[Rfam]
RNA sequence: GUUUUAUUAAGAAGGGUGGAGAGAACAGGCUCUGAGAAACCCUGGCAACCGCGCCGCUUGGCGAAAGGUGCCAAUUCCUGCCAAAGCUGCCUGUGGCAGCGCUUUUUGGGACAAUAAAUC
Numbered sequence: 001g002u003u004u005u006a007u008u009a010a011g012a013a014g015g016g017u018g019g020a021g022a023g024a025a026c027a028g029g030c031u032c033u034g035a036g037a038a039a040c041c042c043u044g045g046c047a048a049c050c051g052c053g054c055c056g057c058u059u060g061g062c063g064a065a066a067g068g069u070g071c072c073a074a075u076u077c078c079u080g081c082c083a084a085a086g087c088u089g090c091c092u093g094u095g096g097c098a099g100c101g102c103u104u105u106u107u108g109g110g111a112c113a114a115u116a117a118a119u120c
Base pairs, nucleotide, nucleotide: 001120003118004117005116006115007114008113013043014042015041016040017039021032022031023030026080027079028078029077044072045071046070047069049068050067052063053062054061081109082108083107084106085105086104
Shown here is a 120-nucleotide sequence from Phaeodactylibacter luteus, a member of the family "SAM riboswitch aptamer (S box leader)".
It scores 76 bits against the family's covariance model.
The source organism's lineage runs through Bacteria, Pseudomonadati, Bacteroidota, Saprospirales and Phaeodactylibacter.
Rfam links the family to the GO term regulation of gene expression.